This 75-nucleotide RNA sequence from Oscillatoriaceae cyanobacterium M33_DOE_052 belongs to the Rfam family "Fluoride riboswitch aptamer (crcB RNA motif)". Taxonomically the source falls in Oscillatoriaceae (Bacteria, Cyanobacteriota, Oscillatoriophycideae, Oscillatoriales).
RNA sequence: AUCACAUGAGGCGAUGGGGCUCGCCACAACCGCCGGUCAGUAACUGACUUUUAGGCUGAUGGCUCCUACUUUCCA
Dot-bracket structure: .........[[[[..((((((]]]]......(((...................)))....)))))).........